[Rfam]
Annotation:
A member of the RNA family "Small nucleolar RNA SNORA79" from Catagonus wagneri, 147 nucleotides long. NCBI's taxonomy places the organism under Eukaryota, Deuterostomia, Euteleostomi, Sarcopterygii, Catagonus. The base pairs follow the family's consensus structure, which was predicted with RNAalifold. Rfam describes the family as follows. ACA65 (SNORA79) is a member of the H/ACA class of snoRNAs that guide the sites of modification of uridines to pseudouridines. This snoRNA was identified by computational screening and its expression in mouse experimentally verified by Northern blot and primer extension analysis.
RNA sequence: UAAUGGCUGUUCCUCUCACUGCUUGGAGCCUUAGGUAAUAGGAUUUUAGUCCAUCAUCUAUCUAAGCUGACUUGUCUUCACUCAGGGCACCAUGGGGAUGGGUUGCUGUCCCUGUUAGUGCCUCUGAUUUUAUAGAGUCAAACAACU
Numbered sequence: 001u002a003a004u005g006g007c008u009g010u011u012c013c014u015c016u017c018a019c020u021g022c023u024u025g026g027a028g029c030c031u032u033a034g035g036u037a038a039u040a041g042g043a044u045u046u047u048a049g050u051c052c053a054u055c056a057u058c059u060a061u062c063u064a065a066g067c068u069g070a071c072u073u074g075u076c077u078u079c080a081c082u083c084a085g086g087g088c089a090c091c092a093u094g095g096g097g098a099u100g101g102g103u104u105g106c107u108g109u110c111c112c113u114g115u116u117a118g119u120g121c122c123u124c125u126g127a128u129u130u131u132a133u134a135g136a137g138u139c140a141a142a143c144a145a146c147u
Stems, first nucleotide, its partner, number of pairs: 001056001003054004008049001014043003018039001020037004069139005082127005087121004095113003